The family of this 115-nucleotide RNA is "pemK RNA". The sequence is in the family's curated seed alignment. It is annotated as a cis-regulatory element.
RNA sequence: ACAAUGAUACUCCUGUUCAGUCACAGUCCGAGCGUGAUAGCGUUUUCCAACGCAAAGCCGUCGCAGGCAAUGAGAGCAGCCGACAGAGAACCUGCCGGGGGUGAAAUUCCCGUGG
Numbered sequence: 001a002c003a004a005u006g007a008u009a010c011u012c013c014u015g016u017u018c019a020g021u022c023a024c025a026g027u028c029c030g031a032g033c034g035u036g037a038u039a040g041c042g043u044u045u046u047c048c049a050a051c052g053c054a055a056a057g058c059c060g061u062c063g064c065a066g067g068c069a070a071u072g073a074g075a076g077c078a079g080c081c082g083a084c085a086g087a088g089a090a091c092c093u094g095c096c097g098g099g100g101g102u103g104a105a106a107u108u109c110c111c112g113u114g115g
Stems, first nucleotide, its partner, number of pairs: 012112001013079006080098003084094003099111003